[Rfam]
RNA sequence: ACACCUCCCCCUUUACGACGGAUCGUCCGGCACGUACCUGCCGGUGAAGGAGAAGAGA
Numbered sequence: 001a002c003a004c005c006u007c008c009c010c011c012u013u014u015a016c017g018a019c020g021g022a023u024c025g026u027c028c029g030g031c032a033c034g035u036a037c038c039u040g041c042c043g044g045u046g047a048a049g050g051a052g053a054a055g056a057g058a
Stems, first nucleotide, its partner, number of pairs: 009050002012048004027044006
RNA: msiK RNA